[Rfam]
A member of the RNA family "Bacterial RNase P class A" from Eubacterium sp. CAG:841, 378 nucleotides long.
RNA sequence: CGACCGGUCUGAGCGAUCGCGCGGUAUGGUGCCGAAAGGUAUUACCGUGAGGAAAGUCCGGGCUUCACAGAGCAAGGAUAACGGAUAACGUCCGCCGAAGGUGACUUCCGGGAAAGUGCAACAGAAAUAAACCGCCGCGCCCGUCGCGGUAAGGAUGGAAAGGCGAGGUAAGAGCUCACCGACCUCUUGGUAACAAGGGGUGCCAUGUAAACCCUAUCCGAAGCAACGCCCCGUGCCGAUGAGGUAUGCUCUGCCCGAUGUCGAAAGACGUCCGGCGCGAGGCGGCAGUCUGAUUUUGUCAGACGAGCUUUGCAGUAAUGCAAAGCAAAGAUAGAUGAUCGCUCCCGACAGAACCCGGCUUACAGGACCGGUCGGCCU
Numbered sequence: 001c002g003a004c005c006g007g008u009c010u011g012a013g014c015g016a017u018c019g020c021g022c023g024g025u026a027u028g029g030u031g032c033c034g035a036a037a038g039g040u041a042u043u044a045c046c047g048u049g050a051g052g053a054a055a056g057u058c059c060g061g062g063c064u065u066c067a068c069a070g071a072g073c074a075a076g077g078a079u080a081a082c083g084g085a086u087a088a089c090g091u092c093c094g095c096c097g098a099a100g101g102u103g104a105c106u107u108c109c110g111g112g113a114a115a116g117u118g119c120a121a122c123a124g125a126a127a128u129a130a131a132c133c134g135c136c137g138c139g140c141c142c143g144u145c146g147c148g149g150u151a152a153g154g155a156u157g158g159a160a161a162g163g164c165g166a167g168g169u170a171a172g173a174g175c176u177c178a179c180c181g182a183c184c185u186c187u188u189g190g191u192a193a194c195a196a197g198g199g200g201u202g203c204c205a206u207g208u209a210a211a212c213c214c215u216a217u218c219c220g221a222a223g224c225a226a227c228g229c230c231c232c233g234u235g236c237c238g239a240u241g242a243g244g245u246a247u248g249c250u251c252u253g254c255c256c257g258a259u260g261u262c263g264a265a266a267g268a269c270g271u272c273c274g275g276c277g278c279g280a281g282g283c284g285g286c287a288g289u290c291u292g293a294u295u296u297u298g299u300c301a302g303a304c305g306a307g308c309u310u311u312g313c314a315g316u317a318a319u320g321c322a323a324a325g326c327a328a329a330g331a332u333a334g335a336u337g338a339u340c341g342c343u344c345c346c347g348a349c350a351g352a353a354c355c356c357g358g359c360u361u362a363c364a365g366g367a368c369c370g371g372u373c374g375g376c377c378u
Stems, first nucleotide, its partner, number of pairs: 001374010011363001012343007020049007054361003058358005063223004076219005082094004096110001097108004111214002116212002118208003132154002134150006162180002165177003181203001182201008228299002307326008